[Rfam]
RNA: Eukaryotic large subunit ribosomal RNA, nucleotides 2959 to 3348
RNA sequence: GAAUGUCGCCCCAACGGUAAUACCGCUUAGUACGAGAGGAACCGCGGUUUCAGAUAAUUGGUUUUUGCGGCUGUCCGACAGGGCAGUGCCGCGAAGCUACCAUCUGCUGGAUUACGGCUGAACGCCUCUAAGUCAGAAUCCAUGCCGGAACGGGGUGAUUCUUCCUGCACACCGUAGCCGUAUACGAAUAGGCCUCGAGCCCCGGAUCCCACAGGGCCGGCACCGCGUCCCGCCUGCAAUUGGCGGGGCGUCGCCGGCGUAUUGCAAUUUCACCGUGCGCAGGGAUAAAUCCUUUGCAGACGACUUAGAUGUCCGUCCCGGUCGUGUAAGCAGUCGAGUAGCCUUGUUGUUACGAGCUGCUGAGCGUAAGCCGGCGACGGCUAGAUUUGU
Numbered sequence: 001g002a003a004u005g006u007c008g009c010c011c012c013a014a015c016g017g018u019a020a021u022a023c024c025g026c027u028u029a030g031u032a033c034g035a036g037a038g039g040a041a042c043c044g045c046g047g048u049u050u051c052a053g054a055u056a057a058u059u060g061g062u063u064u065u066u067g068c069g070g071c072u073g074u075c076c077g078a079c080a081g082g083g084c085a086g087u088g089c090c091g092c093g094a095a096g097c098u099a100c101c102a103u104c105u106g107c108u109g110g111a112u113u114a115c116g117g118c119u120g121a122a123c124g125c126c127u128c129u130a131a132g133u134c135a136g137a138a139u140c141c142a143u144g145c146c147g148g149a150a151c152g153g154g155g156u157g158a159u160u161c162u163u164c165c166u167g168c169a170c171a172c173c174g175u176a177g178c179c180g181u182a183u184a185c186g187a188a189u190a191g192g193c194c195u196c197g198a199g200c201c202c203c204g205g206a207u208c209c210c211a212c213a214g215g216g217c218c219g220g221c222a223c224c225g226c227g228u229c230c231c232g233c234c235u236g237c238a239a240u241u242g243g244c245g246g247g248g249c250g251u252c253g254c255c256g257g258c259g260u261a262u263u264g265c266a267a268u269u270u271c272a273c274c275g276u277g278c279g280c281a282g283g284g285a286u287a288a289a290u291c292c293u294u295u296g297c298a299g300a301c302g303a304c305u306u307a308g309a310u311g312u313c314c315g316u317c318c319c320g321g322u323c324g325u326g327u328a329a330g331c332a333g334u335c336g337a338g339u340a341g342c343c344u345u346g347u348u349g350u351u352a353c354g355a356g357c358u359g360c361u362g363a364g365c366g367u368a369a370g371c372c373g374g375c376g377a378c379g380g381c382u383a384g385a386u387u388u389g390u
Stems, first nucleotide, its partner, number of pairs: 005159008015147004020050001022048005051106005059099003066093005071086006108142003116134004164283005170277001287388005292308002296304001313380005319373003323366002330360004335356001338353005